[Rfam]
RNA sequence: UGGCGCCCAACGUGGGGCCUGGAUACUGGGGGACAAUGUGAGGGACACGACAAAAGAAGAAGGGGUGCGCACCUGCUCAAAUAGUUCGGAGAUGUCGCGGUAGCCUGCUGUGACCAAGCCGACAGGUAAGUUGGUUGUUAAUCAUGGGGCAAGAAUUAAGUCAGCAUCAGAAAUAUGUGAUACAGUUAAGAGAAGCUUUACAGGCAAGAGGAGUAAAGGUUACAACUGAGGAUUUAUUUCAUUUCUUUGAUUUUGUGAAAGACAUCUGCCCAU
Numbered sequence: 001u002g003g004c005g006c007c008c009a010a011c012g013u014g015g016g017g018c019c020u021g022g023a024u025a026c027u028g029g030g031g032g033a034c035a036a037u038g039u040g041a042g043g044g045a046c047a048c049g050a051c052a053a054a055a056g057a058a059g060a061a062g063g064g065g066u067g068c069g070c071a072c073c074u075g076c077u078c079a080a081a082u083a084g085u086u087c088g089g090a091g092a093u094g095u096c097g098c099g100g101u102a103g104c105c106u107g108c109u110g111u112g113a114c115c116a117a118g119c120c121g122a123c124a125g126g127u128a129a130g131u132u133g134g135u136u137g138u139u140a141a142u143c144a145u146g147g148g149g150c151a152a153g154a155a156u157u158a159a160g161u162c163a164g165c166a167u168c169a170g171a172a173a174u175a176u177g178u179g180a181u182a183c184a185g186u187u188a189a190g191a192g193a194a195g196c197u198u199u200a201c202a203g204g205c206a207a208g209a210g211g212a213g214u215a216a217a218g219g220u221u222a223c224a225a226c227u228g229a230g231g232a233u234u235u236a237u238u239u240c241a242u243u244u245c246u247u248u249g250a251u252u253u254u255g256u257g258a259a260a261g262a263c264a265u266c267u268g269c270c271c272a273u
Base pairs, nucleotide, nucleotide: 006031007030008029012026013025014024037049038048039047086126087125088123093116094115096112097111098110099109100108132152134150135149138147139146140145157200158199159198160196161195208248209247210246211245212244213243217235218234219233220232221231258273261270263268

Annotation:
The family of this 273-nucleotide RNA sequence from Nannospalax galili is "Mason-Pfizer monkey virus packaging signal". By type it is a cis-regulatory element. Pairs were carried over by alignment from the consensus structure, which was predicted with PFOLD. This family represents a group of sequences that are related to the Mason-Pfizer monkey virus (MPMV) packaging signal. The packaging signal is located in the 5' UTR and is required for specific RNA encapsidation. The match comes from Rfam's covariance-model search (146 bits).